[Rfam]
RNA sequence: GGAGGUGGACGGAGGAUCGCCGGUGGUCUGCGCUCGGCGCGGACCGCGGGAGGAAAGUCCGGGCUCCACAGGGCAGGGAGGUCGCUAACGGCGACCCGGGGUGACCCGAGGGAAAGCGCAACAGAAAGCACACCGCCGAUGGCCGUGGAUCCGACGGAGCUCUGAGAGGGGCCCCGACGGGGAGGCACAGGCAAGGGUGAAAACGUGGGGUAAGAGCCCACGCGCGACGGCCGGGUGACCGGCGGCGCGGCAAGCCCCUCCCGGAGCAAGCUCGAAUAGGGGUGCAGUCGAGGGUGGCCCGCCCGAUCCGCCGCGAGGCGGCUGCUCCCGGGUCGGAGCGCUCGAGCGUCACAGCAAUGUGUCGCCUAGACGAAUGAUCCUCGCCGUGACGGUUUCCGUCUCGGAACAGAACCCGGCUUACAGUCCACCCCGGCGC
Numbered sequence: 001g002g003a004g005g006u007g008g009a010c011g012g013a014g015g016a017u018c019g020c021c022g023g024u025g026g027u028c029u030g031c032g033c034u035c036g037g038c039g040c041g042g043a044c045c046g047c048g049g050g051a052g053g054a055a056a057g058u059c060c061g062g063g064c065u066c067c068a069c070a071g072g073g074c075a076g077g078g079a080g081g082u083c084g085c086u087a088a089c090g091g092c093g094a095c096c097c098g099g100g101g102u103g104a105c106c107c108g109a110g111g112g113a114a115a116g117c118g119c120a121a122c123a124g125a126a127a128g129c130a131c132a133c134c135g136c137c138g139a140u141g142g143c144c145g146u147g148g149a150u151c152c153g154a155c156g157g158a159g160c161u162c163u164g165a166g167a168g169g170g171g172c173c174c175c176g177a178c179g180g181g182g183a184g185g186c187a188c189a190g191g192c193a194a195g196g197g198u199g200a201a202a203a204c205g206u207g208g209g210g211u212a213a214g215a216g217c218c219c220a221c222g223c224g225c226g227a228c229g230g231c232c233g234g235g236u237g238a239c240c241g242g243c244g245g246c247g248c249g250g251c252a253a254g255c256c257c258c259u260c261c262c263g264g265a266g267c268a269a270g271c272u273c274g275a276a277u278a279g280g281g282g283u284g285c286a287g288u289c290g291a292g293g294g295u296g297g298c299c300c301g302c303c304c305g306a307u308c309c310g311c312c313g314c315g316a317g318g319c320g321g322c323u324g325c326u327c328c329c330g331g332g333u334c335g336g337a338g339c340g341c342u343c344g345a346g347c348g349u350c351a352c353a354g355c356a357a358u359g360u361g362u363c364g365c366c367u368a369g370a371c372g373a374a375u376g377a378u379c380c381u382c383g384c385c386g387u388g389a390c391g392g393u394u395u396c397c398g399u400c401u402c403g404g405a406a407c408a409g410a411a412c413c414c415g416g417c418u419u420a421c422a423g424u425c426c427a428c429c430c431c432g433g434c435g436c
Stems, first nucleotide, its partner, number of pairs: 002431001004429007011421001012382007020050002023047009055419003059416005064266004073314002076262005081095005096110001097108004111257002116255002118251002133196002135192003140187002143184001204222006224246001225244002228241003232237001270339004280329003284325002308321004346365003350361004